[Rfam]
RNA sequence: CAAGCUAUCACAGGAGAGGCCGAUCAUUCGGCGCCGAAGGAGCAACCCCCCGGAACCUCUCAGGCAAAAGGACUGUGACUGGCGC
Numbered sequence: 001c002a003a004g005c006u007a008u009c010a011c012a013g014g015a016g017a018g019g020c021c022g023a024u025c026a027u028u029c030g031g032c033g034c035c036g037a038a039g040g041a042g043c044a045a046c047c048c049c050c051c052g053g054a055a056c057c058u059c060u061c062a063g064g065c066a067a068a069a070g071g072a073c074u075g076u077g078a079c080u081g082g083c084g085c
Base pairs, nucleotide, nucleotide: 008078009077010076011075012074013073020031021030022029023028033065034064035063036061037060040059041058042057046053047052
RNA: Glycine riboswitch aptamer
Organism: Ruegeria marina